[Rfam]
RNA sequence: AUCCCAAUGAGGAUCUCAAGACCGACCGAUAGGAAGUGCCGUUUGACACUGUAAGCAACAGCUGCUUCCUCCGGCUGCAGGUGUCUAUCCUCCGACCAUAACCUUUGUGGUUUGGUCUGGGAUGGAGCACCCAUCUGUGGUUCUUGGAUUCUGGCUGUGGUGUGUGAUUUAAAUCGGGUCUCUGAGGGAU
Numbered sequence: 001a002u003c004c005c006a007a008u009g010a011g012g013a014u015c016u017c018a019a020g021a022c023c024g025a026c027c028g029a030u031a032g033g034a035a036g037u038g039c040c041g042u043u044u045g046a047c048a049c050u051g052u053a054a055g056c057a058a059c060a061g062c063u064g065c066u067u068c069c070u071c072c073g074g075c076u077g078c079a080g081g082u083g084u085c086u087a088u089c090c091u092c093c094g095a096c097c098a099u100a101a102c103c104u105u106u107g108u109g110g111u112u113u114g115g116u117c118u119g120g121g122a123u124g125g126a127g128c129a130c131c132c133a134u135c136u137g138u139g140g141u142u143c144u145u146g147g148a149u150u151c152u153g154g155c156u157g158u159g160g161u162g163u164g165u166g167a168u169u170u171a172a173a174u175c176g177g178g179u180c181u182c183u184g185a186g187g188g189a190u
Base pairs, nucleotide, nucleotide: 001190002189003188004187005186075140076139077138078137079136080135081134082133083132084126085125086124087123088122089121090120094117095116096115097114098113100112101111102110103109